[Rfam]
Description
The family of this 63-nucleotide RNA from Pongo abelii is "U7 small nuclear RNA". Taxonomically the source falls in Pongo (Eukaryota, Chordata, Tetrapoda, Amniota). Pairs were carried over by alignment from the consensus structure, which was predicted with PFOLD.
RNA sequence: GAGUGUUACAGCUCUUUUAGAAUUUUUCUAGCUGGCUUUCUGAUCUUUACCUGAGAAGCAAUA
Numbered sequence: 001g002a003g004u005g006u007u008a009c010a011g012c013u014c015u016u017u018u019a020g021a022a023u024u025u026u027u028c029u030a031g032c033u034g035g036c037u038u039u040c041u042g043a044u045c046u047u048u049a050c051c052u053g054a055g056a057a058g059c060a061a062u063a
Base pairs, nucleotide, nucleotide: 035059036058037057038056039055041053042051044049
Dot-bracket structure: ..................................(((((.((.(....).).).)))))....